[Rfam]
RNA sequence: UGUCGACCCUCCAAAGGUCGGCGUACCGAAGAGGCUUGUCUUUCUUGCCGGGCGUGCGGAAAGGGAAAAAUCCCCUUCCAAGCGAUGGCUAUUCGUACCGGAUUCGAUGUCCGUCCGGGCAUUCGCGUCCGUGCUUCGUCUAGCCG
Numbered sequence: 001u002g003u004c005g006a007c008c009c010u011c012c013a014a015a016g017g018u019c020g021g022c023g024u025a026c027c028g029a030a031g032a033g034g035c036u037u038g039u040c041u042u043u044c045u046u047g048c049c050g051g052g053c054g055u056g057c058g059g060a061a062a063g064g065g066a067a068a069a070a071u072c073c074c075c076u077u078c079c080a081a082g083c084g085a086u087g088g089c090u091a092u093u094c095g096u097a098c099c100g101g102a103u104u105c106g107a108u109g110u111c112c113g114u115c116c117g118g119g120c121a122u123u124c125g126c127g128u129c130c131g132u133g134c135u136u137c138g139u140c141u142a143g144c145c146g
Stems, first nucleotide, its partner, number of pairs: 001023008033049003056139003087099002107122005
RNA: speF leader
Organism: Methylosinus sporium